[Rfam]
Nucleotides: 086
Stems, first nucleotide, its partner, number of pairs: 001086003014073005
Number, partner (000 for none) and nucleotide at each position: 001086g002085g003084a004000a005000g006000u007000g008000a009000u010000g011000a012000a013000a014073u015072g016071g017070c018069a019000u020000u021000u022000u023000u024000g025000u026000u027000u028000u029000g030000u031000g032000a033000c034000a035000c036000c037000c038000a039000g040000u041000c042000u043000g044000a045000u046000c047000u048000g049000c050000u051000u052000c053000u054000g055000c056000a057000g058000a059000g060000u061000g062000a063000g064000u065000g066000a067000u068000g069018u070017g071016c072015c073014a074000u075000a076000u077000u078000c079000u080000c081000u082000g083000a084003u085002c086001c
The family of this 86-nucleotide RNA sequence from Eutrema salsugineum is "Small nucleolar RNA snoR4a". The family has 2 seed sequences and 63 matches in Rfam 15.1. A reference for the family is Brown et al. (2001), "Multiple snoRNA gene clusters from Arabidopsis", RNA. The match comes from Rfam's covariance-model search (71 bits). It is annotated as a C/D-box small nucleolar RNA.